A member of the RNA family "Mammalian CPEB3 ribozyme" from Alligator sinensis, 75 nucleotides long. It scores 39 bits against the family's covariance model. The mammalian CPEB3 ribozyme is a self cleaving RNA located in the second intron of the CPEB3 gene which belongs to a family of genes regulating messenger RNA polyadenylation.

RNA sequence: UUACAAAUUCAAGGGCAAAGCAGAAGCACUCACAGCGCGGUCUGUCCAGAUUCCAAUGAAUCUGCAAGUUCUGCU
Number, nucleotide and partner (000 for none) at each position: 001u000002u000003a000004c000005a000006a000007a000008u000009u000010c000011a000012a000013g042014g041015g000016c039017a000018a000019a075020g074021c073022a072023g071024a070025a069026g038027c037028a000029c000030u000031c000032a000033c000034a000035g000036c000037g027038c026039g016040g000041u014042c013043u000044g000045u000046c000047c064048a063049g062050a061051u060052u059053c058054c000055a000056a000057u000058g053059a052060a051061u050062c049063u048064g047065c000066a000067a000068g000069u025070u024071c023072u022073g021074c020075u019